[Rfam]
RNA: Small nucleolar RNA SNORD111
RNA sequence: UGGCCUGAAAUGAUGUUCUGAGUUCAUGUCUCUUCUCUGAGCAGUGUCCUGAAGACAGCCAGGUGUAUUUCUGAUCAGGCUU
Numbered sequence: 001u002g003g004c005c006u007g008a009a010a011u012g013a014u015g016u017u018c019u020g021a022g023u024u025c026a027u028g029u030c031u032c033u034u035c036u037c038u039g040a041g042c043a044g045u046g047u048c049c050u051g052a053a054g055a056c057a058g059c060c061a062g063g064u065g066u067a068u069u070u071c072u073g074a075u076c077a078g079g080c081u082u
Base pairs, nucleotide, nucleotide: 002081003080004079005078
Dot-bracket structure: .((((........................................................................)))).